[Rfam]
RNA sequence: CUGUAUGGGUCUAUGCCUUUUCUCCUCCCUUGUGCUCAGUUCUAACAAGGGAGGCUGGCAGGACACACAGCAAUCUCCCUCUGUUUAGGAGAGCCGUCCUAAGAAUAGGGCUGGCUCCUAAAGGCACGAGAGGACAGU
Numbered sequence: 001c002u003g004u005a006u007g008g009g010u011c012u013a014u015g016c017c018u019u020u021u022c023u024c025c026u027c028c029c030u031u032g033u034g035c036u037c038a039g040u041u042c043u044a045a046c047a048a049g050g051g052a053g054g055c056u057g058g059c060a061g062g063a064c065a066c067a068c069a070g071c072a073a074u075c076u077c078c079c080u081c082u083g084u085u086u087a088g089g090a091g092a093g094c095c096g097u098c099c100u101a102a103g104a105a106u107a108g109g110g111c112u113g114g115c116u117c118c119u120a121a122a123g124g125c126a127c128g129a130g131a132g133g134a135c136a137g138u
Stems, first nucleotide, its partner, number of pairs: 002065003006061001008059001010058002024054003028050006078133005083125004089119001091117005096111006

The family of this 138-nucleotide RNA from Odocoileus virginianus is "Small Cajal body specific RNA 11". The match comes from Rfam's covariance-model search (126 bits). From the family's description: scaRNAs are a specific class of small nuclear RNAs which localise to the Cajal bodies and guide the modification of RNA polymerase II transcribed spliceosomal RNAs U1, U2, U4, U5 and U12. ACA57 belongs to the H/ACA box class of guide RNAs as it has the predicted hairpin-hinge-hairpin-tail structure, conserved H/ACA-box motifs and is found associated with GAR1. ACA57 is predicted to guide the pseudouridylation of the U5 spliceosomal RNA at position U43.